[Rfam]
The record is an 81-nucleotide RNA sequence from Hucho hucho, which matches "Small nucleolar RNA SNORD79" in Rfam. By type it is a C/D-box small nucleolar RNA. On this family, see Smith and Steitz, Mol Cell Biol 1998: "Classification of gas5 as a multi-small-nucleolar-RNA (snoRNA) host gene and a member of the 5'-terminal oligopyrimidine gene family reveals common features of snoRNA host genes".

RNA sequence: UACUGUAAAUGAUGACUGUAAAAAAAAACAUUGGGAAUCUCUCUGAAAAAUAAUGAACGACGUGUUUUUACUGACGCAGUG
Numbered sequence: 001u002a003c004u005g006u007a008a009a010u011g012a013u014g015a016c017u018g019u020a021a022a023a024a025a026a027a028a029c030a031u032u033g034g035g036a037a038u039c040u041c042u043c044u045g046a047a048a049a050a051u052a053a054u055g056a057a058c059g060a061c062g063u064g065u066u067u068u069u070a071c072u073g074a075c076g077c078a079g080u081g
Stems, first nucleotide, its partner, number of pairs: 001081006